[Rfam]
RNA sequence: UAUUUUAUAGCGCUUAAUCUUAAGUUAAGAGCGGGAGAACCAUAUAUAAUUCUUUGUACGGAAUUAUAAAGGCCGGACACGGACAAUGUGCCGGCAAUACUUGGGGUGAAUAAUUGUUUUUUUAGAGUAUCUGAUAAACAGUUUAGGGUUAUCUUUCGACCCGAAUCCGUCAGCUAAUCUCGUAAGCGUUGGAAGAGAAGGUGA
Dot-bracket structure: ..........((((...(((.......)))((((((....((...........................................................))(((.....((((((((................))))))))..((((.........))))...))).........)))))).))))................